[Rfam]
RNA sequence: UAAUCCCGGUUGCGACCGGGGUUACCUAGCCAACUGACGUUGUUAGUGAAUGAUUUUGUUCACACUUUAUUUGAGCCAAUCGCGGUUAUUGCGGUUGGCUUUUUUUCU
Numbered sequence: 001u002a003a004u005c006c007c008g009g010u011u012g013c014g015a016c017c018g019g020g021g022u023u024a025c026c027u028a029g030c031c032a033a034c035u036g037a038c039g040u041u042g043u044u045a046g047u048g049a050a051u052g053a054u055u056u057u058g059u060u061c062a063c064a065c066u067u068u069a070u071u072u073g074a075g076c077c078a079a080u081c082g083c084g085g086u087u088a089u090u091g092c093g094g095u096u097g098g099c100u101u102u103u104u105u106u107c108u
Stems, first nucleotide, its partner, number of pairs: 001024006040074003046063007076098008